[Rfam]
The record is a 68-nucleotide RNA from Humulus scandens, which matches "Plastid-psbM 3UTR RNA" in Rfam. The sequence is in the family's curated seed alignment. From the family's description: Plastid psbM is a non-coding RNA (ncRNA) recognised in plastids. It was found in the three prime untranslated region (3UTR) of psbM gene, its 3UTR location suggests a role in transcript maturation. Rfam classes the family as a cis-regulatory element.

RNA sequence: CUAGUAUGGUAGAAAAAAAUCUUUUUCUACCAUACUAUACUAGUAUUGUUAUUGUACUCUAUAAAGUU
Numbered sequence: 001c002u003a004g005u006a007u008g009g010u011a012g013a014a015a016a017a018a019a020u021c022u023u024u025u026u027c028u029a030c031c032a033u034a035c036u037a038u039a040c041u042a043g044u045a046u047u048g049u050u051a052u053u054g055u056a057c058u059c060u061a062u063a064a065a066g067u068u
Base pairs, nucleotide, nucleotide: 002037003036004035005034006033007032008031009030010029011028012027013026014025015024016023017022
The organism belongs to Humulus, within Eukaryota.